[Rfam]
RNA sequence: GGAGCAGCAACGAUGUUACGCAGCAGGGCAGUCGCCCUAAAACAAAGUUAGACAUCAUGAGGGAAGCGGUGACCAU
Number, nucleotide and partner (000 for none) at each position: 001g000002g000003a000004g000005c000006a017007g000008c015009a014010a000011c000012g000013a000014u009015g008016u000017u006018a000019c000020g056021c000022a000023g053024c000025a000026g037027g036028g035029c034030a000031g000032u000033c000034g029035c028036c027037c026038u050039a049040a048041a000042a000043c000044a000045a000046a000047g000048u040049u039050a038051g000052a000053c023054a000055u000056c020057a000058u000059g076060a000061g074062g073063g000064a000065a000066g000067c000068g000069g000070u000071g000072a000073c062074c061075a000076u059
RNA: putative aminoglycoside riboswitch / attI site